[Rfam]
RNA sequence: UCACAAGUUCAAGGCCAGAACAGAAGUGCUUACAGCAUAGCCCUGACAGAUUCCAAUGAAUCUGCAAAUUAUACU
Number, nucleotide and partner (000 for none) at each position: 001u000002c000003a000004c000005a000006a000007g000008u000009u000010c000011a000012a000013g042014g041015c040016c000017a000018g000019a075020a000021c000022a072023g000024a070025a069026g038027u037028g036029c000030u000031u000032a000033c000034a000035g000036c028037a027038u026039a000040g015041c014042c013043c000044u000045g000046a000047c064048a063049g062050a061051u060052u059053c058054c000055a000056a000057u000058g053059a052060a051061u050062c049063u048064g047065c000066a000067a000068a000069u025070u024071a000072u022073a000074c000075u019
Shown here is a 75-nucleotide RNA from Alligator sinensis, a member of the family "Mammalian CPEB3 ribozyme". Its family is annotated with RNA nuclease activity in the Gene Ontology. Rfam describes the family as follows. The mammalian CPEB3 ribozyme is a self cleaving RNA located in the second intron of the CPEB3 gene which belongs to a family of genes regulating messenger RNA polyadenylation. The source organism's lineage runs through Eukaryota, Metazoa, Vertebrata, Amniota and Alligator. The match comes from Rfam's covariance-model search (39 bits).